[Rfam]
RNA: Small nucleolar RNA SNORA67
RNA sequence: AUCCAAAGAGAUUUGCUUUCCGAUGGGCAAGUAGUAUCCCUCUCAUGAAAGCAGCACCUUGGAGGAAAAUCUGACAUCUGUGAAAUCUCGGGGGGACAAAGAAUACUUCUUUCUUCAUGUGGUGAGUGCCAUCAACA
Numbered sequence: 001a002u003c004c005a006a007a008g009a010g011a012u013u014u015g016c017u018u019u020c021c022g023a024u025g026g027g028c029a030a031g032u033a034g035u036a037u038c039c040c041u042c043u044c045a046u047g048a049a050a051g052c053a054g055c056a057c058c059u060u061g062g063a064g065g066a067a068a069a070u071c072u073g074a075c076a077u078c079u080g081u082g083a084a085a086u087c088u089c090g091g092g093g094g095g096a097c098a099a100a101g102a103a104u105a106c107u108u109c110u111u112u113c114u115u116c117a118u119g120u121g122g123u124g125a126g127u128g129c130c131a132u133c134a135a136c137a
Stems, first nucleotide, its partner, number of pairs: 002063005010055001019048002022042002025039003074127002077125002082120001084118001090115002093112003